[Rfam]
RNA sequence: CUAGGUGGCUAAGCGAUCGCUGGCAAUUUAUUGCGAGAGGAAAGUCCGGGCUCCACAGAAACAAGGCGGCGGGUAACGCCCGCCCAAGUUAUAUGCACAUUGGUGUUUGGCUUGAGGGAAAGUGCCACAGAAAGUAAACCGCCGGAUGCUUUGGCUGAUGGUAAGGGUGAAAGGGUGCGGUAAGAGCGCACCGCGGUUUUGGCAACAAGACUGGCAAGGUAAACCCCGCUUGGAGCAAGACCGAAUAGGAACAGAAGGAGUUUAGUCUCCACAUGCGUUUCUGCGUGCUGUUCGGGUUGGUCGCAUGAGGUGAUCUGCAAAGAUCAUCCUAGAUGAAUGGUCGCUCACUCAUUCCAAAGAAAUUUGGGUUGGGGGACAGAACCCGGCUUAUAGGCCAUCUAGUCAG
Numbered sequence: 001c002u003a004g005g006u007g008g009c010u011a012a013g014c015g016a017u018c019g020c021u022g023g024c025a026a027u028u029u030a031u032u033g034c035g036a037g038a039g040g041a042a043a044g045u046c047c048g049g050g051c052u053c054c055a056c057a058g059a060a061a062c063a064a065g066g067c068g069g070c071g072g073g074u075a076a077c078g079c080c081c082g083c084c085c086a087a088g089u090u091a092u093a094u095g096c097a098c099a100u101u102g103g104u105g106u107u108u109g110g111c112u113u114g115a116g117g118g119a120a121a122g123u124g125c126c127a128c129a130g131a132a133a134g135u136a137a138a139c140c141g142c143c144g145g146a147u148g149c150u151u152u153g154g155c156u157g158a159u160g161g162u163a164a165g166g167g168u169g170a171a172a173g174g175g176u177g178c179g180g181u182a183a184g185a186g187c188g189c190a191c192c193g194c195g196g197u198u199u200u201g202g203c204a205a206c207a208a209g210a211c212u213g214g215c216a217a218g219g220u221a222a223a224c225c226c227c228g229c230u231u232g233g234a235g236c237a238a239g240a241c242c243g244a245a246u247a248g249g250a251a252c253a254g255a256a257g258g259a260g261u262u263u264a265g266u267c268u269c270c271a272c273a274u275g276c277g278u279u280u281c282u283g284c285g286u287g288c289u290g291u292u293c294g295g296g297u298u299g300g301u302c303g304c305a306u307g308a309g310g311u312g313a314u315c316u317g318c319a320a321a322g323a324u325c326a327u328c329c330u331a332g333a334u335g336a337a338u339g340g341u342c343g344c345u346c347a348c349u350c351a352u353u354c355c356a357a358a359g360a361a362a363u364u365u366g367g368g369u370u371g372g373g374g375g376a377c378a379g380a381a382c383c384c385g386g387c388u389u390a391u392a393g394g395c396c397a398u399c400u401a402g403u404c405a406g
Stems, first nucleotide, its partner, number of pairs: 001402010011391001012345007020037002023034004042389003046386005051235004060280002064231005069083005084116001085114007117226002122224002124220003139166002141162004148155002174192006193215001194213008239302004249293006272287005309328008

This 406-nucleotide RNA from Hirschia baltica belongs to the Rfam family "Bacterial RNase P class A". The source organism's lineage runs through Bacteria, Pseudomonadota, Hyphomonadales, Hirschia and Hirschia baltica. A search with the family's covariance model found it, with a score of 310 bits. The family's RNA type in Rfam is ribozyme.